[Rfam]
RNA sequence: UUGUUUAAUUUCUGUAAGUCGCUUUGGAUAAAAGCAUCUGCUAAAUAAUUAAAU
Numbered sequence: 001u002u003g004u005u006u007a008a009u010u011u012c013u014g015u016a017a018g019u020c021g022c023u024u025u026g027g028a029u030a031a032a033a034g035c036a037u038c039u040g041c042u043a044a045a046u047a048a049u050u051a052a053a054u
Stems, first nucleotide, its partner, number of pairs: 013043001014041003021035005
Dot-bracket structure: ............((((....(((((.....)))))...))).)...........